Shown here is a 351-nucleotide sequence from Mediterraneibacter catenae, a member of the family "Bacterial RNase P class A". The match comes from Rfam's covariance-model search (306 bits). The family's RNA type in Rfam is ribozyme. Lineage of the source: Bacteria > Bacillota > Clostridia > Lachnospiraceae > Mediterraneibacter. Ribonuclease P (RNase P) is a ubiquitous endoribonuclease, found in archaea, bacteria and eukarya as well as chloroplasts and mitochondria. Its best characterised activity is the generation of mature 5'-ends of tRNAs by cleaving the 5'-leader elements of precursor-tRNAs. Pairs were carried over by alignment from the consensus structure, which is taken from published work.
RNA sequence: CAAGUAAGACAGGCGAUCGCGGCUGCACAUGCCGAAAGGCUGCAGACGAGGAAAGUCCGGGCUUCACAGGGCAGGAUGCCGGAUAACGUCCGGUGGAGGUGACUCCAAGGCCAGUGCAACAGAAAUAAACCGCCGGGGAUUUCCCCGGUAAGGGUGGAAAGGCAGUGUAAGAGACUACCGCCCUGCCGGUAACGGCAGGGGCAUAUGUAAACCCCAUCCGAAGCAAGACCGGAUAGAAACUAUGUGGCUGCCCGUCACGUUUCAGGUAGGUCGCUCGAGCACAGCGGCGACGCUGCGCCUAGACAGAUGAUCGUCCAACGACAUAACCCGGCUUAUCGUCUUGCUUGACAC
Dot-bracket structure: ((((((((((((((((((.((.(((((.............))))).))....[[[.[[[[[((((...[[[[.((((((((((.....)))))(((((....)))).)((...(((((...........(((((((((....)))))))..)).......((.(((.......))).))(((((((((....)))))))).)...)))..)))))))))))))...((((.....(((((...(((((.]]]])))))))))).....))))......((.(((((....))))).))..........)))))))...........]]]]]]]].).))))))))))....